RNA sequence: ACCCCUUCAAGAGCUAAGCCUGAAAUGAGUGCCGGAGAUAAGCGCCGGGUGGGGCAACGAAC
Numbered sequence: 001a002c003c004c005c006u007u008c009a010a011g012a013g014c015u016a017a018g019c020c021u022g023a024a025a026u027g028a029g030u031g032c033c034g035g036a037g038a039u040a041a042g043c044g045c046c047g048g049g050u051g052g053g054g055c056a057a058c059g060a061a062c
Stems, first nucleotide, its partner, number of pairs: 002054004013030003032048004037043001